RNA: Bacterial large subunit ribosomal RNA, nucleotides 510 to 854
Organism: Lwoffella lincolnii
RNA sequence: AGUCGGAGCCCGACCACUUAAUCGUUUUGAGGAUAACAAUGAAUUUUUACUACGUCUAUGUCAUACAAAACAUGGAUAAUCAUGAUGAGUUUUAUGUUGGUUUUACCACCAAUUUAAAACAAAGAAUUGAUGACCAUAAUAAUGGCACAACUUACUCAACCAGAGCAAGAACAUGGCGUAUUGUUUAUUGUGAAGCCUACAUUAACGAACAAGUGGCAAGAAAGCGAGAGCGAACCAUAAAAAAUAAUGGUCGUAUGAGAACUUUCUUGAUGAAUCGUAUCAAAUCACAAUUUGACAAUCAGAACGAUUAAGUGGUCGGGUGACGGCGUACCUUUUGUAUAAUGG
Numbered sequence: 001a002g003u004c005g006g007a008g009c010c011c012g013a014c015c016a017c018u019u020a021a022u023c024g025u026u027u028u029g030a031g032g033a034u035a036a037c038a039a040u041g042a043a044u045u046u047u048u049a050c051u052a053c054g055u056c057u058a059u060g061u062c063a064u065a066c067a068a069a070a071c072a073u074g075g076a077u078a079a080u081c082a083u084g085a086u087g088a089g090u091u092u093u094a095u096g097u098u099g100g101u102u103u104u105a106c107c108a109c110c111a112a113u114u115u116a117a118a119a120c121a122a123a124g125a126a127u128u129g130a131u132g133a134c135c136a137u138a139a140u141a142a143u144g145g146c147a148c149a150a151c152u153u154a155c156u157c158a159a160c161c162a163g164a165g166c167a168a169g170a171a172c173a174u175g176g177c178g179u180a181u182u183g184u185u186u187a188u189u190g191u192g193a194a195g196c197c198u199a200c201a202u203u204a205a206c207g208a209a210c211a212a213g214u215g216g217c218a219a220g221a222a223a224g225c226g227a228g229a230g231c232g233a234a235c236c237a238u239a240a241a242a243a244a245u246a247a248u249g250g251u252c253g254u255a256u257g258a259g260a261a262c263u264u265u266c267u268u269g270a271u272g273a274a275u276c277g278u279a280u281c282a283a284a285u286c287a288c289a290a291u292u293u294g295a296c297a298a299u300c301a302g303a304a305c306g307a308u309u310a311a312g313u314g315g316u317c318g319g320g321u322g323a324c325g326g327c328g329u330a331c332c333u334u335u336u337g338u339a340u341a342a343u344g345g
Base pairs, nucleotide, nucleotide: 002327003326004325005324008321009320010319011318012317013316014315015314016313017312018311019310020309021308022307023306024305025304026303027302028301029300030299331344333342